[Rfam]
RNA sequence: AAAAUCUUGACCUGAUAAAGCAUAGCAAGCAGUCAGUACACAGCCUUGAAGUCGAAGCCGUGAGGUUAGAUUUAAGCGUAGGCAAUGGAGUAUGAGAGCCGCAAUGCGAAAGCGUGAAGCUAUAGAGCUCCGUAAUUUAUGUUGUUAGCGGAAGUCGAUGCAGUCAUUGUUGCAGCAGACAGCAUCAGCAGAUUCGUUAGGCGAGAAACUGCUGAUUCCACCGGGGUCCGAGGGCG
Number, nucleotide and partner (000 for none) at each position: 001a000002a000003a000004a000005u000006c000007u000008u000009g000010a000011c000012c036013u035014g034015a033016u000017a000018a000019a000020g030021c029022a000023u204024a000025g202026c201027a000028a000029g021030c020031a000032g000033u015034c014035a013036g012037u000038a000039c087040a086041c000042a000043g083044c082045c081046u080047u078048g077049a073050a072051g071052u070053c069054g000055a067056a066057g000058c065059c064060g000061u000062g000063a000064g059065g058066u056067u055068a000069g053070a052071u051072u050073u049074a000075a000076g000077c048078g047079u000080a046081g045082g044083c043084a000085a000086u040087g039088g000089a000090g000091u000092a000093u000094g000095a000096g000097a000098g000099c000100c000101g000102c000103a000104a000105u000106g000107c000108g000109a000110a000111a000112g000113c000114g000115u000116g000117a000118a000119g000120c000121u000122a000123u000124a000125g228126a000127g227128c226129u225130c224131c223132g222133u000134a000135a000136u000137u000138u000139a000140u000141g000142u000143u000144g000145u000146u000147a000148g221149c000150g219151g218152a217153a216154g180155u179156c178157g000158a000159u174160g173161c172162a171163g000164u000165c000166a000167u000168u000169g000170u000171u162172g161173c160174a159175g000176c000177a000178g156179a155180c154181a000182g000183c000184a000185u215186c214187a213188g212189c211190a210191g209192a000193u207194u206195c205196g000197u000198u000199a000200g000201g026202c025203g000204a023205g195206a194207a193208a000209c191210u190211g189212c188213u187214g186215a185216u153217u152218c151219c150220a000221c148222c132223g131224g130225g129226g128227u127228c125229c000230g000231a000232g000233g000234g000235c000236g000
The record is a 236-nucleotide RNA from Ruminococcus sp. OM06-36AC, which matches "Group II catalytic intron D1-D4-6" in Rfam. Taxonomically the source falls in Ruminococcus (Bacteria, Bacillati, Bacillota, Oscillospiraceae). A search with the family's covariance model found it, with a score of 130 bits.